Description: Rfam assigns this 84-nucleotide RNA from Ensifer sp. M14 to the family "Repression of heat shock gene expression (ROSE) element".

RNA sequence: CUGGUGGCUCUAAGCGCUAGCAAAUGCUGGGGCGUUUGGCGCCCCCGUAUCCAUGUGGCUUAAAGGAGGAUAUGGCUAUGGCAA
Numbered sequence: 001c002u003g004g005u006g007g008c009u010c011u012a013a014g015c016g017c018u019a020g021c022a023a024a025u026g027c028u029g030g031g032g033c034g035u036u037u038g039g040c041g042c043c044c045c046c047g048u049a050u051c052c053a054u055g056u057g058g059c060u061u062a063a064a065g066g067a068g069g070a071u072a073u074g075g076c077u078a079u080g081g082c083a084a
Stems, first nucleotide, its partner, number of pairs: 001020006008014002029045006046080004051075006059068003
About this RNA
The literature on the family includes a 2001 paper in Nucleic Acids Res by Nocker et al., "A mRNA-based thermosensor controls expression of rhizobial heat shock genes". NCBI's taxonomy places the organism under Bacteria, Pseudomonadota, Alphaproteobacteria, Hyphomicrobiales, Ensifer. It scores 47 bits against the family's covariance model. This family represents a 5' UTR cis-regulatory element found in heat shock mRNAs and is known as the ROSE (repression of heat shock gene expression) element. The ROSE element is a negative regulator of heat shock gene expression. The secondary structure is thought to be regulated by temperature. This regulation blocks access to the ribosome binding site under normal conditions. During heat shock however, the structure changes freeing the ribosome binding site and allowing expression to occur.